[Rfam]
RNA sequence: AUCUACACUGAGUGGCCAGAUUAUUGUGAUCUCUGAACGCAUAAUGAUCUGGCCACUCAGUGUGUGU
Number, nucleotide and partner (000 for none) at each position: 001a000002u000003c000004u064005a063006c062007a061008c060009u059010g058011a057012g056013u055014g054015g053016c052017c051018a000019g049020a048021u047022u046023a045024u044025u043026g042027u041028g040029a000030u000031c000032u000033c000034u000035g000036a000037a000038c000039g000040c028041a027042u026043a025044a024045u023046g022047a021048u020049c019050u000051g017052g016053c015054c014055a013056c012057u011058c010059a009060g008061u007062g006063u005064g004065u000066g000067u000
Rfam assigns this 67-nucleotide sequence from Eptesicus fuscus to the family "mir-9256 microRNA precursor family". Rfam's curators put it in the seed alignment. Taxonomically the source falls in Eptesicus (Eukaryota, Vertebrata, Sarcopterygii, Amniota).